[Rfam]
RNA sequence: AUUUAGGGCUUCUAUCAUGGGUGGCACAUGUACAGCAACUUGUUUGUUCUGCAUGCAGAAUUGACAUCAAGAGAUUUUGGAAGCAUAAUUUUUUGGUACUUGGGCAGCUAGUGAUCAUUGGUCCAGGCACCCUA
Numbered sequence: 001a002u003u004u005a006g007g008g009c010u011u012c013u014a015u016c017a018u019g020g021g022u023g024g025c026a027c028a029u030g031u032a033c034a035g036c037a038a039c040u041u042g043u044u045u046g047u048u049c050u051g052c053a054u055g056c057a058g059a060a061u062u063g064a065c066a067u068c069a070a071g072a073g074a075u076u077u078u079g080g081a082a083g084c085a086u087a088a089u090u091u092u093u094u095g096g097u098a099c100u101u102g103g104g105c106a107g108c109u110a111g112u113g114a115u116c117a118u119u120g121g122u123c124c125a126g127g128c129a130c131c132c133u134a
Stems, first nucleotide, its partner, number of pairs: 008084005013026001015024003027055006034048005056079007102132003107128003111124001113123004
RNA: U11 spliceosomal RNA